[Rfam]
RNA sequence: AGGCCUGCAGAGAGAGAGGCAGGGUCUGAUCCCCAGCCUCAGUGGCAGCUGUUGAUCAGCCAUUGCCUCUUUCUCUCUCCGCU
Numbered sequence: 001a002g003g004c005c006u007g008c009a010g011a012g013a014g015a016g017a018g019g020c021a022g023g024g025u026c027u028g029a030u031c032c033c034c035a036g037c038c039u040c041a042g043u044g045g046c047a048g049c050u051g052u053u054g055a056u057c058a059g060c061c062a063u064u065g066c067c068u069c070u071u072u073c074u075c076u077c078u079c080c081g082c083u
Stems, first nucleotide, its partner, number of pairs: 010075013024061001026059006034051004
Annotation
A member of the RNA family "mir-574 microRNA precursor family" from Cnephaeus nilssonii, 83 nucleotides long. Clan: mir-574 microRNA precursor clan. The organism belongs to Cnephaeus, within Eukaryota. On this family, see Nielsen et al., Anim Genet 2010: "MicroRNA identity and abundance in porcine skeletal muscles determined by deep sequencing".